[Rfam]
RNA sequence: UAAUGAGGGAAGCAUGGUACUGUGUACAGAAAUCAAUAUUGGUACUAAUGUCUGCUUGCUCUGAUGCCUCUUGGCUCUGAUUUUGCGGGCCUGGAAACGUGCCCACAUUU
Numbered sequence: 001u002a003a004u005g006a007g008g009g010a011a012g013c014a015u016g017g018u019a020c021u022g023u024g025u026a027c028a029g030a031a032a033u034c035a036a037u038a039u040u041g042g043u044a045c046u047a048a049u050g051u052c053u054g055c056u057u058g059c060u061c062u063g064a065u066g067c068c069u070c071u072u073g074g075c076u077c078u079g080a081u082u083u084u085g086c087g088g089g090c091c092u093g094g095a096a097a098c099g100u101g102c103c104c105a106c107a108u109u110u
Stems, first nucleotide, its partner, number of pairs: 012025004041091003050081003054075003

This 110-nucleotide sequence from Papaver somniferum belongs to the Rfam family "Small nucleolar RNA snoR100".
The family's consensus secondary structure was predicted with WAR.
Its family is annotated with RNA processing and nucleolus in the Gene Ontology.
A reference for the family is Marker et al. (2002), "Experimental RNomics: identification of 140 candidates for small non-messenger RNAs in the plant Arabidopsis thaliana", Curr Biol.
The family has 9 seed sequences and 1,851 matches in Rfam 15.1.
By type it is an H/ACA-box small nucleolar RNA.